[Rfam]
RNA sequence: GGCACGCUAGAUGCUUUGCUCUGGCACGCAGGCCAACGGCGGUCUGCCCAUACGACAAAGGCGUCGC
Numbered sequence: 001g002g003c004a005c006g007c008u009a010g011a012u013g014c015u016u017u018g019c020u021c022u023g024g025c026a027c028g029c030a031g032g033c034c035a036a037c038g039g040c041g042g043u044c045u046g047c048c049c050a051u052a053c054g055a056c057a058a059a060g061g062c063g064u065c066g067c
Base pairs, nucleotide, nucleotide: 028047029046030045031044032043033042034041
A member of the RNA family "narK RNA" from Stutzerimonas stutzeri, 67 nucleotides long. It is annotated as a cis-regulatory element.